[Rfam]
RNA sequence: CUGCGGUGAUGAGCCUCCAGCUGACCGACCUGGUAUUGCCGCCCUCCAGGGGGAGCGCUCUGACCAGGACAUGACCUCAGUGUAAUCUUCUCUCUGAGCAG
Numbered sequence: 001c002u003g004c005g006g007u008g009a010u011g012a013g014c015c016u017c018c019a020g021c022u023g024a025c026c027g028a029c030c031u032g033g034u035a036u037u038g039c040c041g042c043c044c045u046c047c048a049g050g051g052g053g054a055g056c057g058c059u060c061u062g063a064c065c066a067g068g069a070c071a072u073g074a075c076c077u078c079a080g081u082g083u084a085a086u087c088u089u090c091u092c093u094c095u096g097a098g099c100a101g
Stems, first nucleotide, its partner, number of pairs: 003099002038058002041056002
Record summary: Rfam assigns this 101-nucleotide RNA from Menidia menidia to the family "Z30 small nucleolar RNA". The family's RNA type in Rfam is C/D-box small nucleolar RNA. Pairs were carried over by alignment from the consensus structure, which was predicted with PFOLD. The organism belongs to Menidia, within Eukaryota.